RNA sequence: AUAGAUGGUCGGGCAGUCGCCUCUGUAUAGGGGAGGAAAGUCCGGGCUCCAUGGGAACACGAUGCCGGAUAAUUCCCGGCCAGGGUGACCUGAGGGAAAGUGCCACAGAAAACAAACCGCCCGUCAGGGUAAGGGUGAAAUGGUGCGGUAAGAGCGCACCGCAUGGCCGGUAACGGGCAUGGCAGGGUAAACCCCAUCGGGAGCAAAACCAAAUAGAAGCGGCGCAUAGCCUGUUCCUAGGUUGUCGCUUGGGUAGGUUGCAUGAGGUGUCCGGUAACGGGCAUCCCAGAUGAAUGGCUGCACAUUAUGUGGUGACACAUAAGGACAGAACCCGGCUUAUAGACUGUCUAUCCUU
Number, nucleotide and partner (000 for none) at each position: 001a351002u350003a349004g348005a347006u346007g345008g344009u343010c342011g340012g000013g301014c300015a299016g298017u297018c296019g000020c033021c032022u031023c030024u029025g000026u000027a000028u000029a024030g023031g022032g021033g020034a000035g000036g000037a000038a338039a337040g336041u000042c335043c334044g333045g332046g331047c203048u202049c201050c200051a000052u000053g000054g000055g237056a000057a235058c000059a000060c199061g198062a197063u196064g195065c079066c078067g077068g076069a000070u000071a000072a000073u000074u000075c000076c068077c067078g066079g065080c094081c092082a091083g090084g089085g000086u000087g000088a000089c084090c083091u082092g081093a000094g080095g194096g193097a000098a000099a000100g192101u191102g188103c187104c186105a000106c000107a000108g000109a000110a000111a000112a000113c000114a000115a000116a000117c134118c133119g130120c129121c128122c127123g000124u000125c000126a000127g122128g121129g120130u119131a000132a000133g118134g117135g000136u000137g000138a000139a000140a000141u000142g160143g159144u158145g157146c156147g155148g000149u000150a000151a000152g000153a000154g000155c147156g146157c145158a144159c143160c142161g183162c181163a180164u179165g178166g000167c176168c175169g174170g000171u000172a000173a000174c169175g168176g167177g000178c165179a164180u163181g162182g000183c161184a000185g000186g104187g103188u102189a000190a000191a101192c100193c096194c095195c064196a063197u062198c061199g060200g050201g049202a048203g047204c000205a000206a000207a259208a258209c257210c256211a000212a000213a000214u000215a000216g000217a250218a249219g248220c247221g246222g245223c000224g000225c000226a000227u000228a243229g242230c241231c240232u239233g000234u000235u057236c000237c055238u000239a232240g231241g230242u229243u228244g000245u222246c221247g220248c219249u218250u217251g000252g000253g000254u000255a000256g210257g209258u208259u207260g000261c000262a000263u000264g000265a000266g285267g284268u283269g282270u281271c280272c279273g278274g000275u000276a000277a000278c273279g272280g271281g270282c269283a268284u267285c266286c000287c000288a000289g000290a000291u000292g000293a000294a000295u000296g018297g017298c016299u015300g014301c013302a000303c000304a000305u000306u000307a000308u000309g000310u000311g000312g000313u000314g000315a000316c000317a000318c000319a000320u000321a000322a000323g000324g000325a000326c000327a000328g000329a000330a000331c046332c045333c044334g043335g042336c040337u039338u038339a000340u011341a000342g010343a009344c008345u007346g006347u005348c004349u003350a002351u001352c000353c000354u000355u000